The record is a 233-nucleotide sequence from Nephila pilipes, which matches "Group II catalytic intron D1-D4-6" in Rfam.
RNA sequence: GGAAUCCAAUCUACGCAAAGUUUAGCCAACAGUGUAGAACCUAAUUUCACACAUACGGAGGUAACGAAUUAUAUGAAGCUGAGAGGAGGGAUUUAGUGCGUUGUAACGCAAGUGAAGGAUAUAAGCUCCGAAAUUUACAACAUCGUAGAGUUUGACAUGCUUCAUAUAAUGGAAAACAGAAUGUGUAGUUGCAUUAAGGCAAGCAACUAUCGCUCUACUGGAGUCCUAGACCA
Numbered sequence: 001g002g003a004a005u006c007c008a009a010u011c012u013a014c015g016c017a018a019a020g021u022u023u024a025g026c027c028a029a030c031a032g033u034g035u036a037g038a039a040c041c042u043a044a045u046u047u048c049a050c051a052c053a054u055a056c057g058g059a060g061g062u063a064a065c066g067a068a069u070u071a072u073a074u075g076a077a078g079c080u081g082a083g084a085g086g087a088g089g090g091a092u093u094u095a096g097u098g099c100g101u102u103g104u105a106a107c108g109c110a111a112g113u114g115a116a117g118g119a120u121a122u123a124a125g126c127u128c129c130g131a132a133a134u135u136u137a138c139a140a141c142a143u144c145g146u147a148g149a150g151u152u153u154g155a156c157a158u159g160c161u162u163c164a165u166a167u168a169a170u171g172g173a174a175a176a177c178a179g180a181a182u183g184u185g186u187a188g189u190u191g192c193a194u195u196a197a198g199g200c201a202a203g204c205a206a207c208u209a210u211c212g213c214u215c216u217a218c219u220g221g222a223g224u225c226c227u228a229g230a231c232c233a
Stems, first nucleotide, its partner, number of pairs: 012036005020030003023202001025200002040089002045084003050075002053072003060065001123227001125224006145218006152176002156171003182212002185210008
Taxonomically the source falls in Nephila (Eukaryota, Metazoa, Protostomia, Ecdysozoa). A reference for the family is Bonen and Vogel (2001), "The ins and outs of group II introns", Trends Genet.